[Rfam]
RNA sequence: UGUGGCCAAUGAUGGGAAAAAUACAUUUGCCUACAUUGUCUGAUCAUUUUCUCAUGACAGAGACAUGUAUAUGAUCUGAGGCCUUA
Numbered sequence: 001u002g003u004g005g006c007c008a009a010u011g012a013u014g015g016g017a018a019a020a021a022u023a024c025a026u027u028u029g030c031c032u033a034c035a036u037u038g039u040c041u042g043a044u045c046a047u048u049u050u051c052u053c054a055u056g057a058c059a060g061a062g063a064c065a066u067g068u069a070u071a072u073g074a075u076c077u078g079a080g081g082c083c084u085u086a
Stems, first nucleotide, its partner, number of pairs: 001086002004083004
Background: Small nucleolar RNA SNORD34: an 86-nucleotide sequence from Cuscuta australis. Pairs were carried over by alignment from the consensus structure, which was predicted with PFOLD. Rfam describes the family as follows. snoRNA U34 is found in intron 5 of the ribosomal protein L13a gene in humans.